[Rfam]
RNA sequence: UUGUCUGCUUUGGGGGACAUAGCAGAAGUGUUCACAUUGCAACCCCUGUCAGGUAAUACCUGGUAAUGCCUGCAAAUUCUGCU
Numbered sequence: 001u002u003g004u005c006u007g008c009u010u011u012g013g014g015g016g017a018c019a020u021a022g023c024a025g026a027a028g029u030g031u032u033c034a035c036a037u038u039g040c041a042a043c044c045c046c047u048g049u050c051a052g053g054u055a056a057u058a059c060c061u062g063g064u065a066a067u068g069c070c071u072g073c074a075a076a077u078u079c080u081g082c083u
Base pairs, nucleotide, nucleotide: 013046014045015044016043021083022082023081024080025079026078027077028040029039030038050072051071052070053069054068055067
Dot-bracket structure: ............[[[[....((((((((((.......)))..]]]]...((((((...........))))))....)))))))